Shown here is a 49-nucleotide sequence from Clostridium thermosuccinogenes, a member of the family "uup RNA". The family's consensus secondary structure is taken from published work. The family's RNA type in Rfam is cis-regulatory element.
RNA sequence: AAAUGAUAUGCUCCGUACAAAUGGAUAACGACGAGACGUUGUGCGGAGC
Numbered sequence: 001a002a003a004u005g006a007u008a009u010g011c012u013c014c015g016u017a018c019a020a021a022u023g024g025a026u027a028a029c030g031a032c033g034a035g036a037c038g039u040u041g042u043g044c045g046g047a048g049c
Base pairs, nucleotide, nucleotide: 011048012047013046014045015044017042018041019040